[Rfam]
Bacterial small subunit ribosomal RNA: a 600-nucleotide part of an RNA from Amaricoccus macauensis.
RNA sequence: UGACGGGGGCCCGCACAAGCGGUGGAGCAUGUGGUUUAAUUCGAAGCAACGCGCAGAACCUUACCAUCCCUUGACUUGGACGUCGCGGGCCGGGAGACCGGUCUUUCAGUUCGGCUGGACGUCACACAGGUGCUGCAUGGCUGUCGUCAGCUCGUGUCGUGAGAUGUUGGGUUAAGUCCCGCAACGAGCGCAACCCUCGCCUUUAGUUGCCAGCAUUCAGUUGGGCACUCUAGAGGAACCGCCGGUGAUAAGCCGGAGGAAGGUGGGGAUGACGUCAAGUCCUCAUGGCCCUUACGGGAUGGGCUACACACGUGCUACAAUGGUGGUGACAGAGGGUUAUCCCUAAAAGCCAUCUCAGUUCGGAUUGGGGUCUGCAACUCGACCCCAUGAAGUUGGAAUCGCUAGUAAUCGCGUAACAGCAUGACGCGGUGAAUACGUUCCCGGGCCUUGUACACACCGCCCGUCACACCAUGGGAAUUGGGUCUACCCGAAGGUGGUGCGCCAACCAGCAAUGGGGGCAGCCAACCACGGUAGGCUCAGUGACUGGGGUGAAGUCGUAACAAGGUAGCCGUAGGGGAACCUGCGGCUGGAUCACCUCCU
Numbered sequence: 001u002g003a004c005g006g007g008g009g010c011c012c013g014c015a016c017a018a019g020c021g022g023u024g025g026a027g028c029a030u031g032u033g034g035u036u037u038a039a040u041u042c043g044a045a046g047c048a049a050c051g052c053g054c055a056g057a058a059c060c061u062u063a064c065c066a067u068c069c070c071u072u073g074a075c076u077u078g079g080a081c082g083u084c085g086c087g088g089g090c091c092g093g094g095a096g097a098c099c100g101g102u103c104u105u106u107c108a109g110u111u112c113g114g115c116u117g118g119a120c121g122u123c124a125c126a127c128a129g130g131u132g133c134u135g136c137a138u139g140g141c142u143g144u145c146g147u148c149a150g151c152u153c154g155u156g157u158c159g160u161g162a163g164a165u166g167u168u169g170g171g172u173u174a175a176g177u178c179c180c181g182c183a184a185c186g187a188g189c190g191c192a193a194c195c196c197u198c199g200c201c202u203u204u205a206g207u208u209g210c211c212a213g214c215a216u217u218c219a220g221u222u223g224g225g226c227a228c229u230c231u232a233g234a235g236g237a238a239c240c241g242c243c244g245g246u247g248a249u250a251a252g253c254c255g256g257a258g259g260a261a262g263g264u265g266g267g268g269a270u271g272a273c274g275u276c277a278a279g280u281c282c283u284c285a286u287g288g289c290c291c292u293u294a295c296g297g298g299a300u301g302g303g304c305u306a307c308a309c310a311c312g313u314g315c316u317a318c319a320a321u322g323g324u325g326g327u328g329a330c331a332g333a334g335g336g337u338u339a340u341c342c343c344u345a346a347a348a349g350c351c352a353u354c355u356c357a358g359u360u361c362g363g364a365u366u367g368g369g370g371u372c373u374g375c376a377a378c379u380c381g382a383c384c385c386c387a388u389g390a391a392g393u394u395g396g397a398a399u400c401g402c403u404a405g406u407a408a409u410c411g412c413g414u415a416a417c418a419g420c421a422u423g424a425c426g427c428g429g430u431g432a433a434u435a436c437g438u439u440c441c442c443g444g445g446c447c448u449u450g451u452a453c454a455c456a457c458c459g460c461c462c463g464u465c466a467c468a469c470c471a472u473g474g475g476a477a478u479u480g481g482g483u484c485u486a487c488c489c490g491a492a493g494g495u496g497g498u499g500c501g502c503c504a505a506c507c508a509g510c511a512a513u514g515g516g517g518g519c520a521g522c523c524a525a526c527c528a529c530g531g532u533a534g535g536c537u538c539a540g541u542g543a544c545u546g547g548g549g550u551g552a553a554g555u556c557g558u559a560a561c562a563a564g565g566u567a568g569c570c571g572u573a574g575g576g577g578a579a580c581c582u583g584c585g586g587c588u589g590g591a592u593c594a595c596c597u598c599c600u
Stems, first nucleotide, its partner, number of pairs: 001454002003451003007448007015438002019402005024318001026316008034307002040055001042053002064302007077126002079123005087104007106118004129291002132289004138285002140280003143276001145274002150189006156165003168181004195268004200236007210225002214223002239259002242256005322354006334343003361392001366387007408430007457564001459561001462557002467551004472546003477541012493526001495524004501519003506515002566589010
Notes:
Gene Ontology terms of the family: ribosome and structural constituent of ribosome. Clan: SSU clan. A search with the family's covariance model found it, with a score of 1526 bits. The source organism's lineage runs through Bacteria, Pseudomonadota, Alphaproteobacteria, Rhodobacterales and Amaricoccus.